The family of this 83-nucleotide sequence from Phalacrocorax carbo is "Small nucleolar RNA SNORD72". It is annotated as a C/D-box small nucleolar RNA. Gene Ontology terms of the family: nucleolus and RNA processing. A search with the family's covariance model found it, with a score of 44 bits. snoRNA HBII-240 belongs to the CD family of snoRNAs. It is the human orthologue of the mouse MBII-240 and is predicted to guide 2'O-ribose methylation of the large 28S rRNA at residue U4590. For this family Rfam cites "RNomics: an experimental approach that identifies 201 candidates for novel, small, non-messenger RNAs in mouse" (Huttenhofer et al., EMBO J, 2001).

RNA sequence: CACUUGUUAACAAGAUGUUUCUUACUAAAAUUGUCUGGUCAUGUGAACUCCAUAGUGAUUUGAGUGCAUUACUGAGAUAAGCU
Numbered sequence: 001c002a003c004u005u006g007u008u009a010a011c012a013a014g015a016u017g018u019u020u021c022u023u024a025c026u027a028a029a030a031u032u033g034u035c036u037g038g039u040c041a042u043g044u045g046a047a048c049u050c051c052a053u054a055g056u057g058a059u060u061u062g063a064g065u066g067c068a069u070u071a072c073u074g075a076g077a078u079a080a081g082c083u
Stems, first nucleotide, its partner, number of pairs: 003081006
Dot-bracket structure: ..((((((...................................................................))))))..